Shown here is a 111-nucleotide RNA sequence from Marinactinospora thermotolerans, a member of the family "TPP riboswitch aptamer (THI element)". The match comes from Rfam's covariance-model search (64 bits). The family's consensus secondary structure is taken from published work. From the family's description: Vitamin B(1) in its active form thiamin pyrophosphate (TPP) is an essential coenzyme that is synthesised by coupling of pyrimidine and thiazole moieties in bacteria. Lineage of the source: Bacteria > Actinomycetota > Actinomycetes > Streptosporangiales > Marinactinospora thermotolerans.

RNA sequence: CGAGAACCCCGCGGGAGCCGGGCGGACCCGGCUGAGAGGGAGGCUGACCGCCUCCGACCGCACGAACCUGAUCCGGAUCAUGCCGGCGAAGGGAGCGGAGGGCGACAUCAU
Numbered sequence: 001c002g003a004g005a006a007c008c009c010c011g012c013g014g015g016a017g018c019c020g021g022g023c024g025g026a027c028c029c030g031g032c033u034g035a036g037a038g039g040g041a042g043g044c045u046g047a048c049c050g051c052c053u054c055c056g057a058c059c060g061c062a063c064g065a066a067c068c069u070g071a072u073c074c075g076g077a078u079c080a081u082g083c084c085g086g087c088g089a090a091g092g093g094a095g096c097g098g099a100g101g102g103c104g105a106c107a108u109c110a111u
Base pairs, nucleotide, nucleotide: 007098008097010095011061012060013059014058017032018031019030020029021028039055040054041053042052043051067092068091069090073086074085075084076083